Overview: The record is a 116-nucleotide RNA sequence from Cocos nucifera, which matches "Small nucleolar RNA Z278" in Rfam. Rfam classes the family as a C/D-box small nucleolar RNA. On this family, see Chen et al., Nucleic Acids Res 2003: "The high diversity of snoRNAs in plants: identification and comparative study of 120 snoRNA genes from Oryza sativa". The match comes from Rfam's covariance-model search (77 bits). Pairs were carried over by alignment from the consensus structure, which was predicted with PFOLD. Rfam describes the family as follows. snoZ278 is a C/D box small nucleolar RNA. Its methylation guide targets have not been reported. Taxonomically the source falls in Cocos (Eukaryota, Viridiplantae, Euphyllophyta, Cocoseae). The family has 7 seed sequences and 1,130 matches in Rfam 15.1. Its family is annotated with nucleolus and RNA processing in the Gene Ontology.

RNA sequence: GCCUGUGAUGAUAUCUCCAAGUUUAUGAGGUGUAGAUUGCUCCAAGUCCCUGUUUUACAGGGGGAACCUGCUUGGAGCUGCUACAUUCAAAUGACUUCAGUGGACUUUUCUGAGGC
Numbered sequence: 001g002c003c004u005g006u007g008a009u010g011a012u013a014u015c016u017c018c019a020a021g022u023u024u025a026u027g028a029g030g031u032g033u034a035g036a037u038u039g040c041u042c043c044a045a046g047u048c049c050c051u052g053u054u055u056u057a058c059a060g061g062g063g064g065a066a067c068c069u070g071c072u073u074g075g076a077g078c079u080g081c082u083a084c085a086u087u088c089a090a091a092u093g094a095c096u097u098c099a100g101u102g103g104a105c106u107u108u109u110c111u112g113a114g115g116c
Stems, first nucleotide, its partner, number of pairs: 001116003048062005